[Rfam]
RNA sequence: CAAAUUCACCAGGGGUGCUCUUUGCAAUUCGAGAGCUGAGAAAAACCCUCACAACCUGCACUGGAUAAUGCCUGCGGAGGGAGUGUGAUGAUUGCCACAU
Numbered sequence: 001c002a003a004a005u006u007c008a009c010c011a012g013g014g015g016u017g018c019u020c021u022u023u024g025c026a027a028u029u030c031g032a033g034a035g036c037u038g039a040g041a042a043a044a045a046c047c048c049u050c051a052c053a054a055c056c057u058g059c060a061c062u063g064g065a066u067a068a069u070g071c072c073u074g075c076g077g078a079g080g081g082a083g084u085g086u087g088a089u090g091a092u093u094g095c096c097a098c099a100u
Stems, first nucleotide, its partner, number of pairs: 006088004011049004016043001017036005055080003061074001063072002
Notes:
Shown here is a 100-nucleotide RNA from Legionella septentrionalis, a member of the family "TPP riboswitch aptamer (THI element)". Vitamin B(1) in its active form thiamin pyrophosphate (TPP) is an essential coenzyme that is synthesised by coupling of pyrimidine and thiazole moieties in bacteria. The base pairs follow the family's consensus structure, which is taken from published work. On this family, see Rodionov et al., J Biol Chem 2002: "Comparative genomics of thiamin biosynthesis in procaryotes. New genes and regulatory mechanisms". A search with the family's covariance model found it, with a score of 62 bits. NCBI's taxonomy places the organism under Bacteria, Pseudomonadati, Pseudomonadota, Legionellaceae, Legionella.